[Rfam]
A member of the RNA family "Group I catalytic intron" from Ceratocystis platani, 323 nucleotides long. It scores 89 bits against the family's covariance model.
RNA sequence: UCAGGUGUAUUCUAUGGUCUUAUGGCCUAAACUAUAGUGAACCUGUAGUUAUAAACUAUCAAAUUGCGGGAACACCCUAAAGCUAUUAUAACCAAGUAAAUGUAGUAAUAUGUUUAUGGCACAGGUAAUGACUCGUGGUAUGGUAAAAUCAUGAUAGAUAAUUCAAUGGGUAAUCCGCAGCCAAGCACUUAGUAUUAAAAUCAAACCCCCUUAAGGGGGUUCCCCUAUUAGGUGUGCAGUUCAUCGACUAGACGGUAGUUGGUAUUAUUUUUAUUACUAUUAUAAUGCUUAAGGUAUAGUCAAACCCCGCCUGAAAGGGUGCA
Numbered sequence: 001u002c003a004g005g006u007g008u009a010u011u012c013u014a015u016g017g018u019c020u021u022a023u024g025g026c027c028u029a030a031a032c033u034a035u036a037g038u039g040a041a042c043c044u045g046u047a048g049u050u051a052u053a054a055a056c057u058a059u060c061a062a063a064u065u066g067c068g069g070g071a072a073c074a075c076c077c078u079a080a081a082g083c084u085a086u087u088a089u090a091a092c093c094a095a096g097u098a099a100a101u102g103u104a105g106u107a108a109u110a111u112g113u114u115u116a117u118g119g120c121a122c123a124g125g126u127a128a129u130g131a132c133u134c135g136u137g138g139u140a141u142g143g144u145a146a147a148a149u150c151a152u153g154a155u156a157g158a159u160a161a162u163u164c165a166a167u168g169g170g171u172a173a174u175c176c177g178c179a180g181c182c183a184a185g186c187a188c189u190u191a192g193u194a195u196u197a198a199a200a201u202c203a204a205a206c207c208c209c210c211u212u213a214a215g216g217g218g219g220u221u222c223c224c225c226u227a228u229u230a231g232g233u234g235u236g237c238a239g240u241u242c243a244u245c246g247a248c249u250a251g252a253c254g255g256u257a258g259u260u261g262g263u264a265u266u267a268u269u270u271u272u273a274u275u276a277c278u279a280u281u282a283u284a285a286u287g288c289u290u291a292a293g294g295u296a297u298a299g300u301c302a303a304a305c306c307c308c309g310c311c312u313g314a315a316a317g318g319g320u321g322c323a
Base pairs, nucleotide, nucleotide: 016033017032054260055259056258057257058256060254065179066178067177068176069175070174075170076169077168180240181239185235186234187233188232194228195227244302246301247300248299249298250297262288263287264286265285266284267283268282308321309320310319311318312317
Record summary: For this family Rfam cites "Crystal structure of a group I ribozyme domain: principles of RNA packing" (Cate et al., Science, 1996). Its family is annotated with Group I intron splicing in the Gene Ontology.